RNA sequence: UCCAUCGUGAGGUGGAAUCUGAAGGAAGUCGGAGGCAAAGCUUUGGUCUGAGGAACACAAAUCACAUCUGAGGCUUAAGUCUAUGGGUAAGCUUGCUGAACAAAGUGAAGCCCUAUAACUAUCCGAAAUAGACAGAGUAAAUGUGGCAGAUAGAUGAAGUGAAAGUGCACGUU
Numbered sequence: 001u002c003c004a005u006c007g008u009g010a011g012g013u014g015g016a017a018u019c020u021g022a023a024g025g026a027a028g029u030c031g032g033a034g035g036c037a038a039a040g041c042u043u044u045g046g047u048c049u050g051a052g053g054a055a056c057a058c059a060a061a062u063c064a065c066a067u068c069u070g071a072g073g074c075u076u077a078a079g080u081c082u083a084u085g086g087g088u089a090a091g092c093u094u095g096c097u098g099a100a101c102a103a104a105g106u107g108a109a110g111c112c113c114u115a116u117a118a119c120u121a122u123c124c125g126a127a128a129u130a131g132a133c134a135g136a137g138u139a140a141a142u143g144u145g146g147c148a149g150a151u152a153g154a155u156g157a158a159g160u161g162a163a164a165g166u167g168c169a170c171g172u173u
Stems, first nucleotide, its partner, number of pairs: 001016006028173001030171002035166002040160006046151005062146006073138003079133006085113004091106004

Rfam assigns this 173-nucleotide RNA sequence from Clostridium sp. DSM 8431 to the family "Group II catalytic intron D1-D4-3". The pairing is the family consensus, mapped onto this sequence. The family has 406 seed sequences and 4,274 matches in Rfam 15.1.